[Rfam]
RNA: Plant signal recognition particle RNA
Organism: Ipomoea nil
RNA sequence: GCUGGGCUUGGUAGCGCAAGCUUGUAACCCGAGUGGGAGCAUUAUGAUGGUGGAACAAUUGGGCCUUCCUUGAAGGUUGGGUUUGGGUUGCUACCUACUAGCUUGUCCAUUCCAAGUGGUGAGUUGGGCGGUGGAGUCUUUGCAAAGGCAGAGGCUUCUUAGCCCUUAGAUUGGAGGGUACUGCGUGAGGCUGGCUUCACAGAGCAGCGAAAACCUCCUCCUCUCUGCAGUAGAAGGAUAACAGGCUUGGGCAUCCUAAGCCCACUAAUGCCUGAUGGACUGUCCAAAUUGAACCACCAUCUUU
Numbered sequence: 001g002c003u004g005g006g007c008u009u010g011g012u013a014g015c016g017c018a019a020g021c022u023u024g025u026a027a028c029c030c031g032a033g034u035g036g037g038a039g040c041a042u043u044a045u046g047a048u049g050g051u052g053g054a055a056c057a058a059u060u061g062g063g064c065c066u067u068c069c070u071u072g073a074a075g076g077u078u079g080g081g082u083u084u085g086g087g088u089u090g091c092u093a094c095c096u097a098c099u100a101g102c103u104u105g106u107c108c109a110u111u112c113c114a115a116g117u118g119g120u121g122a123g124u125u126g127g128g129c130g131g132u133g134g135a136g137u138c139u140u141u142g143c144a145a146a147g148g149c150a151g152a153g154g155c156u157u158c159u160u161a162g163c164c165c166u167u168a169g170a171u172u173g174g175a176g177g178g179u180a181c182u183g184c185g186u187g188a189g190g191c192u193g194g195c196u197u198c199a200c201a202g203a204g205c206a207g208c209g210a211a212a213a214c215c216u217c218c219u220c221c222u223c224u225c226u227g228c229a230g231u232a233g234a235a236g237g238a239u240a241a242c243a244g245g246c247u248u249g250g251g252c253a254u255c256c257u258a259a260g261c262c263c264a265c266u267a268a269u270g271c272c273u274g275a276u277g278g279a280c281u282g283u284c285c286a287a288a289u290u291g292a293a294c295c296a297c298c299a300u301c302u303u304u
Stems, first nucleotide, its partner, number of pairs: 001040003004023007028037003044303001046301008056291002059288002062284003067279001069278002074273004079263008089253002092251001098249001100247007107237002110235003114231001116228004121223003126165004131160001133158011173218005182211001184209003191202003